Notes
The family of this 343-nucleotide sequence from Denitrobacterium detoxificans is "Bacterial RNase P class A". Rfam classes the family as a ribozyme. The organism belongs to Denitrobacterium, within Bacteria. The match comes from Rfam's covariance-model search (311 bits). The family's consensus secondary structure is taken from published work. From the family's description: Ribonuclease P (RNase P) is a ubiquitous endoribonuclease, found in archaea, bacteria and eukarya as well as chloroplasts and mitochondria. Its best characterised activity is the generation of mature 5'-ends of tRNAs by cleaving the 5'-leader elements of precursor-tRNAs. Cellular RNase Ps are ribonucleoproteins.
RNA sequence: GAAGCGGGUCGGACAACUGCGGGCCUUUUAGGCAUGAGGAAAGUCCGGGCUUCAUAGGGCAGGAUGCCAGCUAACGGCUGGGCGGGGCGACCCGAUGGAAAGUGCCACAGAAAAGAAGACUCCAGCUUUCGGGCUGGAAAAGCUGAAACGGUGCGGUAAGAGCGCACCAGUGCGUCGGCAACGGCGUAGCUUGGUAAACCCCAUCCGAAGCAAGCGCAAAUAGGAGUGCUAUGCGGUGGCCCGCCGUGCACUCGGGUUGCGUGCUCGAGGCGCAUCGCAAGAUGCGUCCUAGAUAAAUAGUUGUCUUAAACGACAGAACCCGGCUUAUAGACCCGCUUCAUUC
Numbered sequence: 001g002a003a004g005c006g007g008g009u010c011g012g013a014c015a016a017c018u019g020c021g022g023g024c025c026u027u028u029u030a031g032g033c034a035u036g037a038g039g040a041a042a043g044u045c046c047g048g049g050c051u052u053c054a055u056a057g058g059g060c061a062g063g064a065u066g067c068c069a070g071c072u073a074a075c076g077g078c079u080g081g082g083c084g085g086g087g088c089g090a091c092c093c094g095a096u097g098g099a100a101a102g103u104g105c106c107a108c109a110g111a112a113a114a115g116a117a118g119a120c121u122c123c124a125g126c127u128u129u130c131g132g133g134c135u136g137g138a139a140a141a142g143c144u145g146a147a148a149c150g151g152u153g154c155g156g157u158a159a160g161a162g163c164g165c166a167c168c169a170g171u172g173c174g175u176c177g178g179c180a181a182c183g184g185c186g187u188a189g190c191u192u193g194g195u196a197a198a199c200c201c202c203a204u205c206c207g208a209a210g211c212a213a214g215c216g217c218a219a220a221u222a223g224g225a226g227u228g229c230u231a232u233g234c235g236g237u238g239g240c241c242c243g244c245c246g247u248g249c250a251c252u253c254g255g256g257u258u259g260c261g262u263g264c265u266c267g268a269g270g271c272g273c274a275u276c277g278c279a280a281g282a283u284g285c286g287u288c289c290u291a292g293a294u295a296a297a298u299a300g301u302u303g304u305c306u307u308a309a310a311c312g313a314c315a316g317a318a319c320c321c322g323g324c325u326u327a328u329a330g331a332c333c334c335g336c337u338u339c340a341u342u343c
Base pairs, nucleotide, nucleotide: 001339002338003337004336005335006334007333008332009331010330011328012305013304014303015302016301017300018299020036021035023033024032025031026030041326042325043324045323046322047321048320049319050210051209052208053207057242058241059240060239062206063205064204065203066202067081068080069079070078071077082096083094084093085092086091097201098200102199103198104195105194106193120142121138122137123136124135125134126133127132150168151167152166153165154164155163170190171188172187173186174185175184176183177182214262215261216260217259224253225252226251227250228249229248233247234246235245236244237243269288270287271286272285273284274283275282276281